[Rfam]
RNA: Mason-Pfizer monkey virus packaging signal
RNA sequence: UGGCGCCCAACGUGGGGCUGGAUACUGGGGGACAACGUGAGGGUCCGACGAUGAAGGAAAGAAGGGGUGCACACCUGAUCAAAUAAUAGCUGGGAGAUGUCGUGGUAGCCUGCUGUGACUGAGCCGACAGGUAAAUUGGUCGCUGAAUCAUGGGGCAAGAAUUGAGUCAGCAUCAGAAAUAUGUAAUACAGUUAAAAGAAGCUUUACAGGCAAGAGGAGUAAAGGUUACAACUGAGGAUUUAUUUCAUUUCUUUGAUUUUGUGAAAGACAUCUGCCCAU
Numbered sequence: 001u002g003g004c005g006c007c008c009a010a011c012g013u014g015g016g017g018c019u020g021g022a023u024a025c026u027g028g029g030g031g032a033c034a035a036c037g038u039g040a041g042g043g044u045c046c047g048a049c050g051a052u053g054a055a056g057g058a059a060a061g062a063a064g065g066g067g068u069g070c071a072c073a074c075c076u077g078a079u080c081a082a083a084u085a086a087u088a089g090c091u092g093g094g095a096g097a098u099g100u101c102g103u104g105g106u107a108g109c110c111u112g113c114u115g116u117g118a119c120u121g122a123g124c125c126g127a128c129a130g131g132u133a134a135a136u137u138g139g140u141c142g143c144u145g146a147a148u149c150a151u152g153g154g155g156c157a158a159g160a161a162u163u164g165a166g167u168c169a170g171c172a173u174c175a176g177a178a179a180u181a182u183g184u185a186a187u188a189c190a191g192u193u194a195a196a197a198g199a200a201g202c203u204u205u206a207c208a209g210g211c212a213a214g215a216g217g218a219g220u221a222a223a224g225g226u227u228a229c230a231a232c233u234g235a236g237g238a239u240u241u242a243u244u245u246c247a248u249u250u251c252u253u254u255g256a257u258u259u260u261g262u263g264a265a266a267g268a269c270a271u272c273u274g275c276c277c278a279u
Stems, first nucleotide, its partner, number of pairs: 006030003012025003036050003089132001090130001101117005139156001141155001143154002146151001163206003166202002214254006223241005264279001267276001269274001